[Rfam]
RNA sequence: CAGUUAAAAAGCUCGUAGUCGGAAGUCGGGCUCGGGCAGGCUGUCGGCCUCGGUUGGGCAGCUUGCUUGGGUCUUCUAGCUCGGGGGCCCCGUGCCAUUUAACCGUGGUGCGCGGGAACACGGGCCGUUUACUUUGAAAAAAUUAGAGUGUUCAAAGCAGGCCUACGCUUGAAUACAUUAGCAUGGAAUAAUGGAAUAGGACUUUGGUGCUAUUUCGUUGGUUAAUGGGACCGAAGUAAUGAUUAAAAGGGACAGUUGGGGCCGUUUAUAUUUCGUUGUCAGAGGUGAAAUUCUUGGAUUUACGAAAGAUAAACUUCUGCGAAAGCAUUCGGCAAGGAUGUUUUCAUUGAUCAAGAACGAAAGUUAGGGGAUCGAAGACGAUCAGAUACCGUCGUAGUCUUAACCAUAAACUAUGCCGACUAGGGAUCAGUGGAUGUCAAUUUGCGACGCCAUUGGCACCUUGUGAGAAAUCAAAGUUUUUGGGUUCCGGGGGGAGUAUGGUCGCAAGGCUGAAACUUAAAGGAAU
Numbered sequence: 001c002a003g004u005u006a007a008a009a010a011g012c013u014c015g016u017a018g019u020c021g022g023a024a025g026u027c028g029g030g031c032u033c034g035g036g037c038a039g040g041c042u043g044u045c046g047g048c049c050u051c052g053g054u055u056g057g058g059c060a061g062c063u064u065g066c067u068u069g070g071g072u073c074u075u076c077u078a079g080c081u082c083g084g085g086g087g088c089c090c091c092g093u094g095c096c097a098u099u100u101a102a103c104c105g106u107g108g109u110g111c112g113c114g115g116g117a118a119c120a121c122g123g124g125c126c127g128u129u130u131a132c133u134u135u136g137a138a139a140a141a142a143u144u145a146g147a148g149u150g151u152u153c154a155a156a157g158c159a160g161g162c163c164u165a166c167g168c169u170u171g172a173a174u175a176c177a178u179u180a181g182c183a184u185g186g187a188a189u190a191a192u193g194g195a196a197u198a199g200g201a202c203u204u205u206g207g208u209g210c211u212a213u214u215u216c217g218u219u220g221g222u223u224a225a226u227g228g229g230a231c232c233g234a235a236g237u238a239a240u241g242a243u244u245a246a247a248a249g250g251g252a253c254a255g256u257u258g259g260g261g262c263c264g265u266u267u268a269u270a271u272u273u274c275g276u277u278g279u280c281a282g283a284g285g286u287g288a289a290a291u292u293c294u295u296g297g298a299u300u301u302a303c304g305a306a307a308g309a310u311a312a313a314c315u316u317c318u319g320c321g322a323a324a325g326c327a328u329u330c331g332g333c334a335a336g337g338a339u340g341u342u343u344u345c346a347u348u349g350a351u352c353a354a355g356a357a358c359g360a361a362a363g364u365u366a367g368g369g370g371a372u373c374g375a376a377g378a379c380g381a382u383c384a385g386a387u388a389c390c391g392u393c394g395u396a397g398u399c400u401u402a403a404c405c406a407u408a409a410a411c412u413a414u415g416c417c418g419a420c421u422a423g424g425g426a427u428c429a430g431u432g433g434a435u436g437u438c439a440a441u442u443u444g445c446g447a448c449g450c451c452a453u454u455g456g457c458a459c460c461u462u463g464u465g466a467g468a469a470a471u472c473a474a475a476g477u478u479u480u481u482g483g484g485u486u487c488c489g490g491g492g493g494g495a496g497u498a499u500g501g502u503c504g505c506a507a508g509g510c511u512g513a514a515a516c517u518u519a520a521a522g523g524a525a526u
Stems, first nucleotide, its partner, number of pairs: 001489001003487001009486001011358001013356002018351003249345004253340002256337002261333004267311002271307006278300001282293003316327001319326002363404006373397001377393004415485003418478003422461003427456007436448003465472002491518003500511004

Notes
Shown here is a 526-nucleotide part of an RNA from Guillardia theta, a member of the family "Eukaryotic small subunit ribosomal RNA". The match comes from Rfam's covariance-model search (1760 bits). Pairs were carried over by alignment from the consensus structure, which is taken from published work.